[Rfam]
RNA sequence: UGGGUGAUGCGGAAAAUUUGGGUGAUCGAUUGUUUAUAUGCAUCAACAUUCUAUGUGAAUUGUUUGACAGUAGACAGUCAUAUGUAUACGUUAACGAAUUUUGAAAAAUUGAAUCAUUAUUUAAUCAUAAUAUUCAUUGCGCACGCGCAAC
Numbered sequence: 001u002g003g004g005u006g007a008u009g010c011g012g013a014a015a016a017u018u019u020g021g022g023u024g025a026u027c028g029a030u031u032g033u034u035u036a037u038a039u040g041c042a043u044c045a046a047c048a049u050u051c052u053a054u055g056u057g058a059a060u061u062g063u064u065u066g067a068c069a070g071u072a073g074a075c076a077g078u079c080a081u082a083u084g085u086a087u088a089c090g091u092u093a094a095c096g097a098a099u100u101u102u103g104a105a106a107a108a109u110u111g112a113a114u115c116a117u118u119a120u121u122u123a124a125u126c127a128u129a130a131u132a133u134u135c136a137u138u139g140c141g142c143a144c145g146c147g148c149a150a151c
Stems, first nucleotide, its partner, number of pairs: 001149002004146003008143004013138002019136006028079010039069002041066002045064004050059001052057001080099002083096003108125007
S. aureus tsr32 small RNA: a 151-nucleotide RNA from Staphylococcus aureus. For this family Rfam cites "Genome-wide Annotation, Identification, and Global Transcriptomic Analysis of Regulatory or Small RNA Gene Expression in Staphylococcus aureus" (Carroll et al., MBio, 2016). Pairs were carried over by alignment from the consensus structure, which was predicted with RNAfold.